[Rfam]
RNA sequence: CCGACGAAAAGGCAAAGCACGGGCAACCGUGUGACGCAAAGCUACCUGUCCAGUUGCAACUGGAUAGAGGGGCUGCCGAA
Number, nucleotide and partner (000 for none) at each position: 001c000002c000003g000004a000005c000006g000007a000008a000009a000010a000011g000012g037013c036014a000015a000016a000017g032018c031019a030020c029021g028022g027023g000024c000025a000026a000027c022028c021029g020030u019031g018032u017033g000034a000035c000036g013037c012038a000039a000040a074041g073042c072043u071044a000045c070046c069047u068048g065049u064050c063051c062052a061053g060054u059055u000056g000057c000058a000059a054060c053061u052062g051063g050064a049065u048066a000067g000068a047069g046070g045071g043072g042073c041074u040075g000076c000077c000078g000079a000080a000